[Rfam]
RNA: Molybdenum/Tungsten riboswitch aptamer (Moco RNA motif)
Organism: Geomesophilobacter sediminis
Nucleotides: 119
Stems, first nucleotide, its partner, number of pairs: 012104005019057005025051001028050003035044003062087011088096002
Number, partner (000 for none) and nucleotide at each position: 001000c002000c003000a004000a005000a006000a007000a008000c009000g010000g011000c012104u013103c014102u015101c016100c017000g018000a019057g020056c021055c022054g023053c024000c025051u026000c027000c028050g029049c030048c031000u032000a033000a034000a035044a036043g037042g038000u039000c040000a041000u042037c043036c044035u045000c046000a047000c048030g049029g050028c051025g052000a053023g054022c055021g056020g057019c058000c059000a060000u061000u062087g063086g064085g065084u066083g067082c068081u069080g070079c071078u072077g073000g074000a075000a076000a077072c078071g079070g080069c081068a082067g083066u084065g085064c086063c087062u088096u089095c090000c091000u092000c093000u094000u095089g096088a097000g098000a099000a100016g101015g102014a103013g104012a105000a106000c107000c108000u109000c110000g111000a112000c113000g114000g115000g116000u117000g118000g119000a